RNA sequence: AAAAGAAAGGAGAAAUAAACCCUUUCUUGUUCUAUCAAGAGGGCGUUAUUUCUCCUUU
Number, nucleotide and partner (000 for none) at each position: 001a000002a000003a000004a000005g000006a058007a057008a056009g055010g054011a053012g052013a051014a050015a049016u048017a047018a000019a000020c000021c000022c043023u000024u041025u040026c039027u038028u037029g036030u000031u000032c000033u000034a000035u000036c029037a028038a027039g026040a025041g024042g000043g022044c000045g000046u000047u017048a016049u015050u014051u013052c012053u011054c010055c009056u008057u007058u006